Small nucleolar RNA R160: a 75-nucleotide RNA from Elaeis guineensis. The organism belongs to Elaeis, within Eukaryota. snoR160 is a C/D box small nucleolar RNA, which acts as a methylation guide for 25S ribosomal RNA in plants. snoR160 has been alternatively named snoZ270 in rice. It is annotated as a C/D-box small nucleolar RNA. Its family is annotated with nucleolus and RNA processing in the Gene Ontology.

[Rfam]
RNA sequence: AGCAAAAUGAUGAGCUGCUUUGAUCUGAAAUACAUGUGGAUAACAUUAAAAGGUCUUCAUAGUUCUCUGAUUGCU
Numbered sequence: 001a002g003c004a005a006a007a008u009g010a011u012g013a014g015c016u017g018c019u020u021u022g023a024u025c026u027g028a029a030a031u032a033c034a035u036g037u038g039g040a041u042a043a044c045a046u047u048a049a050a051a052g053g054u055c056u057u058c059a060u061a062g063u064u065c066u067c068u069g070a071u072u073g074c075u
Base pairs, nucleotide, nucleotide: 001075002074003073004072005071